[Rfam]
This 265-nucleotide sequence from Zhenhengia yiwuensis belongs to the Rfam family "Bacterial large signal recognition particle RNA". Taxonomically the source falls in Zhenhengia (Bacteria, Bacillati, Bacillota, Lachnospirales). Rfam describes the family as follows. The signal recognition particle (SRP) is a universally conserved ribonucleoprotein involved in the co-translational targeting of proteins to membranes. The base pairs follow the family's consensus structure, which is taken from published work. A search with the family's covariance model found it, with a score of 210 bits.
Nucleotides: 265
Stems, first nucleotide, its partner, number of pairs: 001265006009057003012030004017025001019023001034054005062258003066255003072249005078243001080241008091230002095227005103220002105217003113212009122200006128191002131189003134185002137180005147172004155164003
Number, partner (000 for none) and nucleotide at each position: 001265c002264c003263g004262u005261g006260c007000u008000a009057g010056c011055c012030g013029g014028g015027g016000a017025g018000g019023u020000a021000g022000c023019g024000g025017c026000g027015c028014c029013c030012u031000g032000u033000a034054c035053c036052u037051g038050c039000a040000a041000c042000c043000c044000g045000c046000u047000g048000u049000a050038g051037c052036a053035g054034g055011g056010g057009u058000g059000a060000u061000g062258c063257u064256c065000u066255a067254g068253c069000c070000g071000a072249g073248g074247c075246a076245g077000u078243a079000u080241u081240c082239u083238g084237u085236a086235g087234g088000g089000u090000c091230u092229g093000c094000c095227c096226c097225u098224a099223g100000c101000a102000a103220g104219u105217g106216a107215u108000g109000u110000u111000g112000a113212u114211g115210a116209u117208u118207a119206g120205g121204u122200c123199u124198u125197a126196c127195g128191c129190a130000a131189u132188a133187g134185g135184c136000a137180c138179u139178c140177g141176u142000g143000a144000a145000c146000c147172g148171u149170g150169u151000c152000a153000g154000g155164u156163c157162c158000g159000g160000a161000a162157g163156g164155a165000a166000g167000c168000a169150g170149c171148a172147c173000u174000a175000a176141g177140c178139g179138a180137g181000c182000c183000c184135g185134c186000u187133c188132u189131a190129u191128g192000u193000g194000c195127c196126g197125u198124g199123a200122g201000a202000g203000u204121g205120c206119c207118u208117a209116g210115u211114c212113g213000g214000a215107g216106u217105u218000a219104a220103c221000u222000a223099c224098u225097a226096g227095g228000g229092u230091a231000a232000c233000g234087c235086u236085u237084a238083u239082g240081g241080g242000c243078u244000g245076c246075u247074g248073u249072c250000g251000a252000a253068g254067c255066u256064g257063a258062g259000u260006g261005c262004a263003c264002g265001g